This 111-nucleotide RNA sequence from Lacicoccus alkaliphilus belongs to the Rfam family "SAM riboswitch aptamer (S box leader)". Gene Ontology term of the family: regulation of gene expression.

RNA sequence: GACUUAUCCAGAGAGGCGGAGGGACUGGCCCUGUGACGCCCGGCAACCAUCAGGCAGAUGUGUCUGAAAAGGUGCCAAUUCCAGCAGGAUUCAAAUCCUGAAAGAUAAGAG
Numbered sequence: 001g002a003c004u005u006a007u008c009c010a011g012a013g014a015g016g017c018g019g020a021g022g023g024a025c026u027g028g029c030c031c032u033g034u035g036a037c038g039c040c041c042g043g044c045a046a047c048c049a050u051c052a053g054g055c056a057g058a059u060g061u062g063u064c065u066g067a068a069a070a071g072g073u074g075c076c077a078a079u080u081c082c083a084g085c086a087g088g089a090u091u092c093a094a095a096u097c098c099u100g101a102a103a104g105a106u107a108a109g110a111g
Stems, first nucleotide, its partner, number of pairs: 003109006013041001015040003021031003025084004042076004047072002050067005080103001085100006
Dot-bracket structure: ..((((((....(.(((...(((.[[[[)))......))))((((.((.(((((........)))))...))))))...(]]]]((((((....))))))..)))))))..